[Rfam]
RNA: Purine riboswitch aptamer
RNA sequence: AUCUUGUACAAUGUAUUAUUCCGUAUAUGCUUGGGGAUUGGCUCAGGCGUUUCUACAAGGCAACCGUAAUUGCCUAACUACGGAGGGAAAGUGUACCUAG
Numbered sequence: 001a002u003c004u005u006g007u008a009c010a011a012u013g014u015a016u017u018a019u020u021c022c023g024u025a026u027a028u029g030c031u032u033g034g035g036g037a038u039u040g041g042c043u044c045a046g047g048c049g050u051u052u053c054u055a056c057a058a059g060g061c062a063a064c065c066g067u068a069a070u071u072g073c074c075u076a077a078c079u080a081c082g083g084a085g086g087g088a089a090a091g092u093g094u095a096c097c098u099a100g
Stems, first nucleotide, its partner, number of pairs: 019085007029048007058075006
Dot-bracket structure: ..................(((((((...(((((((......))))))).........((((((......))))))...)))))))...............